[Rfam]
RNA sequence: GCUGCCACUGGCGUUGCAGAGAUGACUGCUGUGGCAUCUUUGUGUCAAAAGAGUGGCAAGAGAGACCCAGGCUAUGUUCUACGCUCGGUUGUUCUGCACCCCGUGAGCACUCAGAGUGAUUGAUAGCCUGACAUG
Numbered sequence: 001g002c003u004g005c006c007a008c009u010g011g012c013g014u015u016g017c018a019g020a021g022a023u024g025a026c027u028g029c030u031g032u033g034g035c036a037u038c039u040u041u042g043u044g045u046c047a048a049a050a051g052a053g054u055g056g057c058a059a060g061a062g063a064g065a066c067c068c069a070g071g072c073u074a075u076g077u078u079c080u081a082c083g084c085u086c087g088g089u090u091g092u093u094c095u096g097c098a099c100c101c102c103g104u105g106a107g108c109a110c111u112c113a114g115a116g117u118g119a120u121u122g123a124u125a126g127c128c129u130g131a132c133a134u135g
Base pairs, nucleotide, nucleotide: 002060003058004057005056006055008051009050010046011045012044016043017042018041019040021038022037023036024035026033068130069129070128071127072126073125074124075123082118083117085115086114088112090109091108092107093106094105
This 135-nucleotide RNA sequence from Hippolais icterina belongs to the Rfam family "Small nucleolar RNA SNORA17". Rfam classes the family as an H/ACA-box small nucleolar RNA. The source organism's lineage runs through Eukaryota, Gnathostomata, Dinosauria, Neognathae and Hippolais. A search with the family's covariance model found it, with a score of 61 bits. From the family's description: snoRNA ACA 17 belongs to the H/ACA family of snoRNAs and is predicted to guide pseudouridylation of the 28S rRNA at positions U4659 and U4598. It shares the same host gene together with ACA43. NB This family has a high threshold value to exclude a large number of closely related sequences that do not appear to have conserved H and ACA boxes, and may be pseudogenes. The family has 53 seed sequences and 5,784 matches in Rfam 15.1.